[Rfam]
RNA sequence: CUGUGCUAGAUGGGGAGGUAGCGGUGCCCUGAACUUGCAAUCCGCUGUAGCAAGGUUGAAUUCCCUUGGCGCGGCAUAAUAAUCUGGGGUCUGACUUAUGAAAGUAGUGUUGAGAGUUUGGUCCUGCGCAACAAAGCGCCAUGAAUCCUGUCAGGUCCGGAAGGAAGCAGCAGUAAGUGGAAGGCAUUGUGUGACGUGGGGUAGCUGAACUUGAGCUAACUCCAUGAGUAGCGCUUGGAGCAUUAUGUCCACCUAAGGGUGCACAG
Dot-bracket structure: ((((((..(((((((.(.(...).).))))...(((((...........)))))))).....(((((((...(((((.((..((((((...((..(((((...(((((.....(((((((((((((((((.(((.(..((((.....((((....(((....)))....))))...))))....).)))))...))))))...)))))))))..))).))..))))).))...))))))..)).)))))...))))))).))))))

Bacterial large signal recognition particle RNA: a 266-nucleotide sequence from Sedimentibacter sp. zth1.
A search with the family's covariance model found it, with a score of 194 bits.
Rfam links the family to the GO terms signal recognition particle, plasma membrane targeting and SRP-dependent cotranslational protein targeting to membrane, signal sequence recognition.
From the family's description: The signal recognition particle (SRP) is a universally conserved ribonucleoprotein involved in the co-translational targeting of proteins to membranes.
The family is grouped with related families in Rfam's "SRP clan".
For this family Rfam cites "Kinship in the SRP RNA family" (Rosenblad et al., RNA Biol, 2009).